[Rfam]
RNA sequence: GGAUGUGAGGGUGAUCUGGCUGCGACAUCUGUCACCCCAUUGAUCGCCAGGGUUGAUUCGGCUGAUCUGGCUGGCUAGACGAGUGUCCCCUUCCUCCCUCACCGCUCCACGUGUGUCCCUCCCGAAGCUGCGCGCUCGGUGGAAGAGGACGACGUCCCAGGUAUAGAAGGAGUGUACCAAGGUCUCCAGUCUUCGGUCCCGGGUAUACGAUAGCUGCGCUCCCCUGCUAGAACCUCCAAACAAGCUCAAGGUCCAUUUGUAGGAGAGUAAGAAGUAGAGACUGUUGGAAAUAAGGUAAGUAUGUUGUGGAAGAUUUGGGAUAAAGUUAUUACCUUGUUU
Numbered sequence: 001g002g003a004u005g006u007g008a009g010g011g012u013g014a015u016c017u018g019g020c021u022g023c024g025a026c027a028u029c030u031g032u033c034a035c036c037c038c039a040u041u042g043a044u045c046g047c048c049a050g051g052g053u054u055g056a057u058u059c060g061g062c063u064g065a066u067c068u069g070g071c072u073g074g075c076u077a078g079a080c081g082a083g084u085g086u087c088c089c090c091u092u093c094c095u096c097c098c099u100c101a102c103c104g105c106u107c108c109a110c111g112u113g114u115g116u117c118c119c120u121c122c123c124g125a126a127g128c129u130g131c132g133c134g135c136u137c138g139g140u141g142g143a144a145g146a147g148g149a150c151g152a153c154g155u156c157c158c159a160g161g162u163a164u165a166g167a168a169g170g171a172g173u174g175u176a177c178c179a180a181g182g183u184c185u186c187c188a189g190u191c192u193u194c195g196g197u198c199c200c201g202g203g204u205a206u207a208c209g210a211u212a213g214c215u216g217c218g219c220u221c222c223c224c225u226g227c228u229a230g231a232a233c234c235u236c237c238a239a240a241c242a243a244g245c246u247c248a249a250g251g252u253c254c255a256u257u258u259g260u261a262g263g264a265g266a267g268u269a270a271g272a273a274g275u276a277g278a279g280a281c282u283g284u285u286g287g288a289a290a291u292a293a294g295g296u297a298a299g300u301a302u303g304u305u306g307u308g309g310a311a312g313a314u315u316u317g318g319g320a321u322a323a324a325g326u327u328a329u330u331a332c333c334u335u336g337u338u339u
Stems, first nucleotide, its partner, number of pairs: 001108003005102007013093002018090002024087005030081004035074002037070003042067004046062003116170002119166002122139004127135002140161001147157003214279002219274002223271001225269003234265004240260005289339002292335007
RNA: 7SK RNA